[Rfam]
RNA sequence: AUUAUGUCUACUCUAAUGCUGUGUUAUGUACUUUAAUCAAUUGACUAUAGCCUCGCUUGUAGACAAGAGCAAUCUUGUUUUAUUAUCCUGGCGCUUGAAGUAAUAGAACAUUUCAAUGUGCCCGAGAAACGUAGAACUACAUUU
Numbered sequence: 001a002u003u004a005u006g007u008c009u010a011c012u013c014u015a016a017u018g019c020u021g022u023g024u025u026a027u028g029u030a031c032u033u034u035a036a037u038c039a040a041u042u043g044a045c046u047a048u049a050g051c052c053u054c055g056c057u058u059g060u061a062g063a064c065a066a067g068a069g070c071a072a073u074c075u076u077g078u079u080u081u082a083u084u085a086u087c088c089u090g091g092c093g094c095u096u097g098a099a100g101u102a103a104u105a106g107a108a109c110a111u112u113u114c115a116a117u118g119u120g121c122c123c124g125a126g127a128a129a130c131g132u133a134g135a136a137c138u139a140c141a142u143u144u
Base pairs, nucleotide, nucleotide: 005065006064007063008062009061010060019050020049021048022047023045024044025043026042027040077137078136079135080134081133082132083131088126089125091123093121
Rfam assigns this 144-nucleotide RNA from Lucilia cuprina to the family "Small nucleolar RNA psi28S-1192". By type it is an H/ACA-box small nucleolar RNA. Its family is annotated with RNA processing and nucleolus in the Gene Ontology. Lineage of the source: Eukaryota > Panarthropoda > Arthropoda > Oestroidea > Lucilia. Rfam's curators write: psi28S-1192 is a member of the H/ACA class of snoRNA. This family is responsible for guiding the modification of uridine 1192 to pseudouridine in Drosophila 28S rRNA.